This 109-nucleotide sequence from Paraburkholderia steynii belongs to the Rfam family "Burkholderia sRNA Bp1_Cand684_SIPHT". It scores 46 bits against the family's covariance model. Rfam 15.1 lists 176 matches to the family in 44 species.
[Rfam]
RNA sequence: AGAAAAGUAGGUGCCGCCCCGCACAGGGGCGACGCUUGAAGCACGCUAACAAAGCGCGGAUGCCAGCGCAGAAGCAAAAAGACCAAACCGCUUGCGCUGCAAACACCAC
Numbered sequence: 001a002g003a004a005a006a007g008u009a010g011g012u013g014c015c016g017c018c019c020c021g022c023a024c025a026g027g028g029g030c031g032a033c034g035c036u037u038g039a040a041g042c043a044c045g046c047u048a049a050c051a052a053a054g055c056g057c058g059g060a061u062g063c064c065a066g067c068g069c070a071g072a073a074g075c076a077a078a079a080a081g082a083c084c085a086a087a088c089c090g091c092u093u094g095c096g097c098u099g100c101a102a103a104c105a106c107c108a109c
Base pairs, nucleotide, nucleotide: 011069012068013067014066015031016030017029018028019027020026058064093101094100095099
Pairs were carried over by alignment from the consensus structure, which was predicted with RNAalifold. For this family Rfam cites "Computational discovery and RT-PCR validation of novel Burkholderia conserved and Burkholderia pseudomallei unique sRNAs" (Khoo et al., BMC Genomics, 2012).